[Rfam]
RNA sequence: GCUACGCCCGGAUGAAAUUCCCGUCGGCCGGUAGUAAUUGGGUCGGUGGGAUCUUCGUCCGUUUGUAUC
Numbered sequence: 001g002c003u004a005c006g007c008c009c010g011g012a013u014g015a016a017a018u019u020c021c022c023g024u025c026g027g028c029c030g031g032u033a034g035u036a037a038u039u040g041g042g043u044c045g046g047u048g049g050g051a052u053c054u055u056c057g058u059c060c061g062u063u064u065g066u067a068u069c
Stems, first nucleotide, its partner, number of pairs: 003067004009061007019051005025045005
Shown here is a 69-nucleotide RNA from Galleria mellonella, a member of the family "mir-278 microRNA precursor family". Lineage of the source: Eukaryota > Dicondylia > Eumetabola > Aparaglossata > Galleria. Rfam links the family to the GO terms RISC complex and miRNA-mediated post-transcriptional gene silencing.